Overview: A member of the RNA family "SAM riboswitch aptamer (S box leader)" from Clostridioides difficile, 107 nucleotides long. The sequence is in the family's curated seed alignment. The source organism's lineage runs through Bacteria, Bacillota, Clostridia, Clostridioides and Clostridioides difficile.
RNA sequence: AUCUUAUCAAGAGUGGCAGAGGGACUGGCCCUGUGAAGCCCGGCAACCAGUAUAUUUAAUUAUACAUUGGUGCUAAAUCCUGCAGCAUUUAUGCUGAAAGAUGAGUA
Numbered sequence: 001a002u003c004u005u006a007u008c009a010a011g012a013g014u015g016g017c018a019g020a021g022g023g024a025c026u027g028g029c030c031c032u033g034u035g036a037a038g039c040c041c042g043g044c045a046a047c048c049a050g051u052a053u054a055u056u057u058a059a060u061u062a063u064a065c066a067u068u069g070g071u072g073c074u075a076a077a078u079c080c081u082g083c084a085g086c087a088u089u090u091a092u093g094c095u096g097a098a099a100g101a102u103g104a105g106u107a
Base pairs, nucleotide, nucleotide: 003105004104005103006102007101008100013041015040016039017038021031022030023029025082027080028079042074043073044072045071047070048069050065051064052063078099083096084095085094086093087092